[Rfam]
RNA sequence: GAAAAAGUCGUCUAGGGUUCCGUUGCCGCAAGGUCAAGCUGGUCCAAGAGAUGGCGUAUGGCAUGGGGCGUUCUGCGAAGAACGGUCAGCCAUAUCACACGGAAGGACAAAAGCCUGGGAGAA
Numbered sequence: 001g002a003a004a005a006a007g008u009c010g011u012c013u014a015g016g017g018u019u020c021c022g023u024u025g026c027c028g029c030a031a032g033g034u035c036a037a038g039c040u041g042g043u044c045c046a047a048g049a050g051a052u053g054g055c056g057u058a059u060g061g062c063a064u065g066g067g068g069c070g071u072u073c074u075g076c077g078a079a080g081a082a083c084g085g086u087c088a089g090c091c092a093u094a095u096c097a098c099a100c101g102g103a104a105g106g107a108c109a110a111a112a113g114c115c116u117g118g119g120a121g122a123a
Stems, first nucleotide, its partner, number of pairs: 007055006015045002020042002022039001023037003027033001056096001061090002098118001100121001104116003
The family of this 123-nucleotide RNA from Cohnella lupini is "Guanidine-I riboswitch aptamer".
Pairs were carried over by alignment from the consensus structure.